[Rfam]
RNA sequence: GGAUGUGAGGGCGAUCUGGCUGCGACAUCUGUCACCCCAUUGAUCGCCAGGGUUGAUUCGGCUGAUCUGGCUGGCUAGGCGGGUGUCCCCUUCCUCCCUCACUGCUCCAUGUGCGUCCCUCCCGAAGCUGCGCGCUCGGUCGAAGAGGACGACCAUCCCCGAUAGAGGAGGACCGGUCUUCGGUCAAGGGUAUAGGAGUAGCUGCGCUCCCCUGCUAGAACCUCCAAACAAGCUCUCAAAAAUGAGUGUGGGACAGUGAGACCGAGACAAAGCAAGAUUUUUUUUCUUUUUUUUUCUU
Numbered sequence: 001g002g003a004u005g006u007g008a009g010g011g012c013g014a015u016c017u018g019g020c021u022g023c024g025a026c027a028u029c030u031g032u033c034a035c036c037c038c039a040u041u042g043a044u045c046g047c048c049a050g051g052g053u054u055g056a057u058u059c060g061g062c063u064g065a066u067c068u069g070g071c072u073g074g075c076u077a078g079g080c081g082g083g084u085g086u087c088c089c090c091u092u093c094c095u096c097c098c099u100c101a102c103u104g105c106u107c108c109a110u111g112u113g114c115g116u117c118c119c120u121c122c123c124g125a126a127g128c129u130g131c132g133c134g135c136u137c138g139g140u141c142g143a144a145g146a147g148g149a150c151g152a153c154c155a156u157c158c159c160c161g162a163u164a165g166a167g168g169a170g171g172a173c174c175g176g177u178c179u180u181c182g183g184u185c186a187a188g189g190g191u192a193u194a195g196g197a198g199u200a201g202c203u204g205c206g207c208u209c210c211c212c213u214g215c216u217a218g219a220a221c222c223u224c225c226a227a228a229c230a231a232g233c234u235c236u237c238a239a240a241a242a243u244g245a246g247u248g249u250g251g252g253a254c255a256g257u258g259a260g261a262c263c264g265a266g267a268c269a270a271a272g273c274a275a276g277a278u279u280u281u282u283u284u285u286c287u288u289u290u291u292u293u294u295u296c297u298u
Base pairs, nucleotide, nucleotide: 001108002107003106005102006101007100008099009098010097011096013093014092018090019089024087025086026085027084028083029082030081031080032079033078035074036073037070038069039068042067043066044065045064046062047061048060116171117170118168119167120166121165122139123138124137125136127135128134140162141161142160147158148157149156201262203260207256208255211252212251213250214249215248230247